[Rfam]
A member of the RNA family "Eukaryotic large subunit ribosomal RNA" from Globodera rostochiensis, 520 nucleotides of a longer RNA. Taxonomically the source falls in Globodera (Eukaryota, Opisthokonta, Bilateria, Heteroderidae).
Nucleotides: 520
Stems, first nucleotide, its partner, number of pairs: 001486004010480007018472003035059005044049001060244002063241006069233005075222009084185003090179002097172016113155001116152001118150014245249001257465007264457002268282003285320003289316004296307004324451003328382003333379002335375004340371001343370003351362004383401006402406001422438005499516005
Number, partner (000 for none) and nucleotide at each position: 001486u002485a003484g004483a005000a006000u007000a008000a009000u010480g011479u012478a013477g014476g015475u016474a017000a018472g019471g020470g021000a022000a023000g024000u025000c026000g027000g028000c029000a030000a031000a032000u033000u034000a035059g036058a037057u038056u039055c040000g041000u042000a043000a044049c045000u046000u047000c048000g049044g050000g051000a052000a053000a054000a055039g056038a057037a058036u059035u060244g061243g062000c063241u064240c065239u066238a067237a068236a069233g070232g071231u072230c073229g074000g075222g076221u077220c078219a079218g080217c081216c082215g083214g084185g085184c086183u087000g088000u089000u090179g091178u092000g093000u094000g095000a096000a097172a098171c099170a100169g101168g102167c103166g104165g105164c106163u107162u108161u109160u110159g111158c112157c113155c114000g115000u116152g117000g118150c119149u120148g121147c122146g123145u124144g125143c126142c127141g128140u129139c130138u131137c132000c133000u134000u135000g136000c137131g138130g139129g140128g141127u142126g143125g144124u145123g146122c147121g148120u149119g150118g151000a152116c153000u154000a155113g156000u157112g158111g159110u160109g161108a162107g163106a164105g165104c166103u167102g168101c169100u170099u171098g172097u173000g174000g175000a176000g177000c178091g179090c180000u181000u182000c183086a184085g185084c186000u187000g188000c189000g190000u191000g192000u193000a194000u195000g196000c197000u198000c199000g200000u201000c202000a203000g204000g205000g206000u207000a208000u209000g210000c211000a212000c213000u214083u215082c216081g217080g218079u219078u220077g221076g222075c223000g224000c225000u226000g227000a228000a229073c230072g231071a232070c233069c234000a235000g236068u237067u238066u239065a240064g241063a242000a243061c244060u245249g246000g247000c248000a249245c250000g251000a252000a253000c254000u255000c256000g257465g258464g259463g260462a261461a262460u263459c264457c265456g266000a267000c268282u269281g270280u271000c272000u273000a274000a275000u276000u277000a278000a279000a280270a281269c282268a283000g284000a285320g286319g287318a288000g289316a290315c291314g292313g293000a294000u295000g296307g297306u298305c299304c300000u301000u302000g303000u304299g305298g306297a307296c308000g309000u310000u311000g312000a313292c314291c315290g316289u317000g318287u319286c320285u321000g322000a323000u324451u325450u326449c327000u328382g329381c330380c331000c332000a333379g334378u335375g336374c337373u338372c339000u340371g341000a342000a343370u344369g345368u346000u347000a348000a349000g350000c351362c352361a353360a354359g355000g356000a357000a358000a359354c360353u361352u362351g363000a364000u365000u366000a367000a368345g369344c370343g371340c372338g373337g374336g375335u376000a377000a378334a379333c380330g381329g382328c383401g384400g385399g386398a387397g388396u389000a390000a391000c392000u393000a394000u395000g396388a397387c398386u399385c400384u401383c402406u403000u404000a405000a406402g407000g408000u409000a410000g411000c412000c413000a414000a415000a416000u417000g418000c419000c420000u421000c422438g423437u424436c425435g426434g427000c428000u429000a430000a431000c432000u433000a434426c435425c436424g437423a438422c439000g440000c441000g442000c443000a444000c445000g446000a447000a448000u449326g450325g451324a452000u453000c454000a455000a456265c457264g458000a459263g460262a461261u462260u463259c464258c465257c466000a467000c468000u469000g470020u471019c472018c473000c474016u475015a476014u477013c478012u479011a480010c481000u482000a483004u484003c485002u486001a487000g488000c489000g490000a491000a492000a493000c494000c495000a496000c497000a498000g499516c500515c501514a502513a503512g504000g505000g506000a507000a508000c509000g510000g511000g512503c513502u514501u515500g516499g517000c518000a519000a520000a

The family has 88 seed sequences and 107,465 matches in Rfam 15.1.